Shown here is a 48-nucleotide RNA from Shewanella salipaludis, a member of the family "uup RNA".
RNA sequence: CCCGAGUGUGCUCCGUACAGUUGCUUGCGAUGAAGCCUUGUCCGGAGC
Dot-bracket structure: ..........(((((.(((...................))).))))).
Numbered sequence: 001c002c003c004g005a006g007u008g009u010g011c012u013c014c015g016u017a018c019a020g021u022u023g024c025u026u027g028c029g030a031u032g033a034a035g036c037c038u039u040g041u042c043c044g045g046a047g048c
Stems, first nucleotide, its partner, number of pairs: 011047005017041003

The match comes from Rfam's covariance-model search (40 bits).